Shown here is a 97-nucleotide sequence, a member of the family "skipping-rope RNA". Rfam's curators put it in the seed alignment. Rfam classes the family as a small RNA.
[Rfam]
RNA sequence: AUUAUUUGAGGUGGAAGAUUUCGUACCCAUCCACACGCCGCUGGUUUGACAGGGGAAACCCGAGAGAUGCAGGAGAAUGGUACGCCUGCCAAAUAAU
Numbered sequence: 001a002u003u004a005u006u007u008g009a010g011g012u013g014g015a016a017g018a019u020u021u022c023g024u025a026c027c028c029a030u031c032c033a034c035a036c037g038c039c040g041c042u043g044g045u046u047u048g049a050c051a052g053g054g055g056a057a058a059c060c061c062g063a064g065a066g067a068u069g070c071a072g073g074a075g076a077a078u079g080g081u082a083c084g085c086c087u088g089c090c091a092a093a094u095a096a097u
Stems, first nucleotide, its partner, number of pairs: 001097008011034005023083005036064001038055002069089005